[Rfam]
RNA sequence: GGGGCUGAACGGUUUCGACUGCGUACGUUGAUUCAGGGGAAGCGUGUCGGUGCAGGCAAGAGACCACCGUAAGCGUCGCUGCAACCAAUUAAGCGCCGAUUCCAAUCAGCGCGAGUACGCCCUCGCUGCCUAAGUAGCAGGUCGUCUCUGUCAGACCGGGUUCGUCUCUCGACCCGGACCCUGGCAUCAGCUAGAGAGACUUACUGUCCGGCCCGGUCGCGGGGUCGGAUGGAACAUCGAACAGCGACUGGGACCGUCAUCCGAGCUUGUUCGCGAGACCCGGAGGUCCAAGUAGAGACCUAGCGAACUGCACACGGAGAAGCCCUGAAGACGCGGCGGAGGACCCGGGUUCGAUUCCCGGCAGCUCCACCA
Numbered sequence: 001g002g003g004g005c006u007g008a009a010c011g012g013u014u015u016c017g018a019c020u021g022c023g024u025a026c027g028u029u030g031a032u033u034c035a036g037g038g039g040a041a042g043c044g045u046g047u048c049g050g051u052g053c054a055g056g057c058a059a060g061a062g063a064c065c066a067c068c069g070u071a072a073g074c075g076u077c078g079c080u081g082c083a084a085c086c087a088a089u090u091a092a093g094c095g096c097c098g099a100u101u102c103c104a105a106u107c108a109g110c111g112c113g114a115g116u117a118c119g120c121c122c123u124c125g126c127u128g129c130c131u132a133a134g135u136a137g138c139a140g141g142u143c144g145u146c147u148c149u150g151u152c153a154g155a156c157c158g159g160g161u162u163c164g165u166c167u168c169u170c171g172a173c174c175c176g177g178a179c180c181c182u183g184g185c186a187u188c189a190g191c192u193a194g195a196g197a198g199a200c201u202u203a204c205u206g207u208c209c210g211g212c213c214c215g216g217u218c219g220c221g222g223g224g225u226c227g228g229a230u231g232g233a234a235c236a237u238c239g240a241a242c243a244g245c246g247a248c249u250g251g252g253a254c255c256g257u258c259a260u261c262c263g264a265g266c267u268u269g270u271u272c273g274c275g276a277g278a279c280c281c282g283g284a285g286g287u288c289c290a291a292g293u294a295g296a297g298a299c300c301u302a303g304c305g306a307a308c309u310g311c312a313c314a315c316g317g318a319g320a321a322g323c324c325c326u327g328a329a330g331a332c333g334c335g336g337c338g339g340a341g342g343a344c345c346c347g348g349g350u351u352c353g354a355u356u357c358c359c360g361g362c363a364g365c366u367c368c369a370c371c372a
Stems, first nucleotide, its partner, number of pairs: 001368007019341002022338003032329007043316005048069005056082003122141002125138005149186006156177007167199004204232009215249006251289005257283002266277002269308004275300001345361005

Shown here is a 372-nucleotide RNA sequence from Nocardia mangyaensis, a member of the family "transfer-messenger RNA". Pairs were carried over by alignment from the consensus structure, which is taken from published work. The organism belongs to Nocardia, within Bacteria. Rfam describes the family as follows. Bacterial tmRNA, also known as 10Sa RNA or SsrA, is named for its dual tRNA and mRNA-like properties. Its role is to liberate the mRNA from a stalled ribosome. To accomplish this part of the tmRNA is used as a reading frame that ends in a translation stop signal. The broken mRNA is replaced in the ribosome by the tmRNA and translation of the tmRNA leads to addition of a proteolysis tag to the incomplete protein enabling recognition by a protease. Recently a number of permuted tmRNA genes have been found encoded in two parts. tmRNAs have been identified in eubacteria and some chloroplasts but are absent from archaeal and eukaryote nuclear genomes. Its Rfam clan is "tRNA clan".